RNA sequence: UAAAAACUAAUAACAAAUACUCGUAUAAUUUCGGGAAUAUGGCCCGAGAGUUUCUACCGAGCUACCACAAAUAGCUUGACUACGAGGUAUGAAUCAUGGAUU
Numbered sequence: 001u002a003a004a005a006a007c008u009a010a011u012a013a014c015a016a017a018u019a020c021u022c023g024u025a026u027a028a029u030u031u032c033g034g035g036a037a038u039a040u041g042g043c044c045c046g047a048g049a050g051u052u053u054c055u056a057c058c059g060a061g062c063u064a065c066c067a068c069a070a071a072u073a074g075c076u077u078g079a080c081u082a083c084g085a086g087g088u089a090u091g092a093a094u095c096a097u098g099g100a101u102u
Base pairs, nucleotide, nucleotide: 020086021085022084023083024082025081029049030048031047032046033045034044035043058078059077060076061075062074063073064072
Purine riboswitch aptamer: a 102-nucleotide sequence from Caldibacillus thermoamylovorans. Rfam links the family to the GO term purine nucleobase biosynthetic process. The family is grouped with related families in Rfam's "Purine riboswitches". The family's consensus secondary structure is taken from published work.